[Rfam]
RNA sequence: AAACCCCUGCUUUUCCGAAGCCCUGCGUUCCAUGCUGGGUACUUUGUAGGCAAAGCAGGGGAUU
Numbered sequence: 001a002a003a004c005c006c007c008u009g010c011u012u013u014u015c016c017g018a019a020g021c022c023c024u025g026c027g028u029u030c031c032a033u034g035c036u037g038g039g040u041a042c043u044u045u046g047u048a049g050g051c052a053a054a055g056c057a058g059g060g061g062a063u064u
Base pairs, nucleotide, nucleotide: 001064002063004061005060006059007058008057009056010055011054012053013052015050016049020040021039022038023037025035026034027033028032